[Rfam]
RNA sequence: ACGGCAGUAUCCGAAAAGCCAACAAAAGAGUAGGAA
Numbered sequence: 001a002c003g004g005c006a007g008u009a010u011c012c013g014a015a016a017a018g019c020c021a022a023c024a025a026a027a028g029a030g031u032a033g034g035a036a
Stems, first nucleotide, its partner, number of pairs: 003020003010035003

This 36-nucleotide RNA belongs to the Rfam family "DUF805b RNA". It is one of the family's seed sequences. The family's consensus secondary structure is taken from published work.